[Rfam]
RNA sequence: CUUCGCUGGCCACCUCGGCGAAGAAAGUGUUCGGGAAACAACGACUUACGCGCUUAGUAAACGUCUCGUCUCCCGCUCCAAC
Dot-bracket structure: (((((((((.....))))))))).....(..(((((.((...(((.................)))..)).)))))..)....
Numbered sequence: 001c002u003u004c005g006c007u008g009g010c011c012a013c014c015u016c017g018g019c020g021a022a023g024a025a026a027g028u029g030u031u032c033g034g035g036a037a038a039c040a041a042c043g044a045c046u047u048a049c050g051c052g053c054u055u056a057g058u059a060a061a062c063g064u065c066u067c068g069u070c071u072c073c074c075g076c077u078c079c080a081a082c
Stems, first nucleotide, its partner, number of pairs: 001023009029078001032075005038069002043065003